[Rfam]
RNA: Group II catalytic intron D1-D4-3
Organism: Cohnella abietis
RNA sequence: CCCUCCGCGAGGUGGAAUCUGAAGGAAGUCGGCGGCAAACCUCCGGUUCGAGGAACACGAAUCUCAUAUAAGGCUAACGUUCGUUGGAUGAGGCUGCAGAACAAGUCGAAGUCCUUACUGCCGAAGGCGAACGGGAGUAAAUGAGGCGAAAUUGAGGUUACUCAA
Numbered sequence: 001c002c003c004u005c006c007g008c009g010a011g012g013u014g015g016a017a018u019c020u021g022a023a024g025g026a027a028g029u030c031g032g033c034g035g036c037a038a039a040c041c042u043c044c045g046g047u048u049c050g051a052g053g054a055a056c057a058c059g060a061a062u063c064u065c066a067u068a069u070a071a072g073g074c075u076a077a078c079g080u081u082c083g084u085u086g087g088a089u090g091a092g093g094c095u096g097c098a099g100a101a102c103a104a105g106u107c108g109a110a111g112u113c114c115u116u117a118c119u120g121c122c123g124a125a126g127g128c129g130a131a132c133g134g135g136a137g138u139a140a141a142u143g144a145g146g147c148g149a150a151a152u153u154g155a156g157g158u159u160a161c162u163c164a165a
Stems, first nucleotide, its partner, number of pairs: 002015002005012002035163001040157004047150004062146006073138003078133006086114004092107004